[Rfam]
RNA: Salmonella mgtC leader RNA
RNA sequence: CAAAUUCAUGCAGGAGUAAUAUGUUGGACAGUCACUUUUACGUAAAUCAUCUGGCAAGUUAACGCACGCUAUUCCUGCGCUGCUUGCCGAACCGGUGGGCAGCAAUCUCCCCU
Numbered sequence: 001c002a003a004a005u006u007c008a009u010g011c012a013g014g015a016g017u018a019a020u021a022u023g024u025u026g027g028a029c030a031g032u033c034a035c036u037u038u039u040a041c042g043u044a045a046a047u048c049a050u051c052u053g054g055c056a057a058g059u060u061a062a063c064g065c066a067c068g069c070u071a072u073u074c075c076u077g078c079g080c081u082g083c084u085u086g087c088c089g090a091a092c093c094g095g096u097g098g099g100c101a102g103c104a105a106u107c108u109c110c111c112c113u
Stems, first nucleotide, its partner, number of pairs: 004043002013036002064092001067089002094112002097109003